The family of this 315-nucleotide sequence from Methanolobus halotolerans is "Archaeal signal recognition particle RNA".
Rfam links the family to the GO terms SRP-dependent cotranslational protein targeting to membrane, signal sequence recognition and signal recognition particle, plasma membrane targeting.
The family is grouped with related families in Rfam's "SRP clan".
The literature on the family includes a 2002 paper in Curr Opin Struct Biol by Wild et al., "Towards the structure of the mammalian signal recognition particle".
The family's consensus secondary structure is taken from published work.
RNA sequence: UGGCGGGCUAGUCCGGGUAGGCCGGCGUUACCUGUAACCCGAAAUCGUCGAUAUGCGGGGGACGAAGCCAAAAGGAGAUGUUUGGAUCAUUUCCAAACCUGUGAUCUCAACUAAGAAGCCCCGUCCUGCUUGGAUGGUGUUGAUAUGAGGGCUUGUUGGAGAACUUGUUUUCAUAUCUUAACCGUGGGAACCAGUCCAGGCCCGGAAGGGAGCAGACCGACCAUGGGCAGCCGUCGCUUGCAGGGCUGCGGGGUGGAGAAGAGGUCACAGAUUAUUUGGAGAUGUGAAAAACAACGACUUGAGGCGUGCCCGUCA
Numbered sequence: 001u002g003g004c005g006g007g008c009u010a011g012u013c014c015g016g017g018u019a020g021g022c023c024g025g026c027g028u029u030a031c032c033u034g035u036a037a038c039c040c041g042a043a044a045u046c047g048u049c050g051a052u053a054u055g056c057g058g059g060g061g062a063c064g065a066a067g068c069c070a071a072a073a074g075g076a077g078a079u080g081u082u083u084g085g086a087u088c089a090u091u092u093c094c095a096a097a098c099c100u101g102u103g104a105u106c107u108c109a110a111c112u113a114a115g116a117a118g119c120c121c122c123g124u125c126c127u128g129c130u131u132g133g134a135u136g137g138u139g140u141u142g143a144u145a146u147g148a149g150g151g152c153u154u155g156u157u158g159g160a161g162a163a164c165u166u167g168u169u170u171u172c173a174u175a176u177c178u179u180a181a182c183c184g185u186g187g188g189a190a191c192c193a194g195u196c197c198a199g200g201c202c203c204g205g206a207a208g209g210g211a212g213c214a215g216a217c218c219g220a221c222c223a224u225g226g227g228c229a230g231c232c233g234u235c236g237c238u239u240g241c242a243g244g245g246c247u248g249c250g251g252g253g254u255g256g257a258g259a260a261g262a263g264g265u266c267a268c269a270g271a272u273u274a275u276u277u278g279g280a281g282a283u284g285u286g287a288a289a290a291a292c293a294a295c296g297a298c299u300u301g302a303g304g305c306g307u308g309c310c311c312g313u314c315a
Base pairs, nucleotide, nucleotide: 001315002314003313004312005311006310007309008308011063012062013061014060015033016032017031018030019029020028038059039058040057041056043054067305068304069303072300073299074298077295079293080292081291082289083288088284089283090282091281092280093279094278095277096276097275099270100269101268102267103266104265105264106263107262108261111258112257118254119253120252121251122250123249124248125244126243127242128241129240132237133235134234135233136232137231138229139228142177143176144175145174146173147172148171149170150169151168152167155164156163157162182226183225184224185223186222187221192219194217195216196215201210202209203208